The record is a 203-nucleotide RNA sequence from Vibrio astriarenae, which matches "Lysine riboswitch aptamer" in Rfam. Riboswitches are metabolite binding domains within certain messenger RNAs that serve as precision sensors for their corresponding targets.
RNA sequence: UUGAGCGGUAGAGGCGCGAUAUCUGAUGAGUAGCGUUUAUUGGGGUGAUACCAAUGAAUAGACGUGAAAGGCUCUGUCGCCGAAGUAAACCAGGCAUAUCAACGCCGGCUUGCUGGGGUUGCUUUCGAAUAGGAGCAACACUGCCAUAGUCUAUACUCACUAAAGUGGUGAGGUAGGUAUUACUAUGGAGCGCUACUGUAGGG
Number, nucleotide and partner (000 for none) at each position: 001u000002u000003g000004a000005g000006c198007g197008g196009u195010a194011g193012a000013g000014g000015c000016g080017c079018g078019a077020u076021a075022u000023c000024u000025g072026a000027u000028g000029a000030g000031u000032a000033g065034c064035g063036u062037u061038u060039a059040u058041u000042g000043g000044g000045g000046u000047g000048a000049u000050a000051c000052c000053a000054a000055u000056g000057a000058a040059u039060a038061g037062a036063c035064g034065u033066g000067a000068a000069a000070g000071g000072c025073u000074c000075u021076g020077u019078c018079g017080c016081c000082g000083a000084a114085g113086u112087a111088a110089a000090c108091c107092a000093g105094g000095c000096a000097u000098a000099u000100c000101a000102a000103c000104g000105c093106c000107g091108g090109c000110u088111u087112g086113c085114u084115g142116g141117g000118g139119u138120u137121g136122c135123u134124u133125u132126c000127g000128a000129a000130u000131a000132g125133g124134a123135g122136c121137a120138a119139c118140a000141c116142u115143g000144c188145c187146a186147u185148a184149g183150u182151c000152u000153a000154u000155a000156c000157u000158c000159a000160c000161u000162a000163a000164a000165g000166u000167g000168g000169u000170g000171a000172g000173g000174u000175a000176g000177g000178u000179a000180u000181u000182a150183c149184u148185a147186u146187g145188g144189a000190g000191c000192g000193c011194u010195a009196c008197u007198g006199u000200a000201g000202g000203g000
A search with the family's covariance model found it, with a score of 119 bits.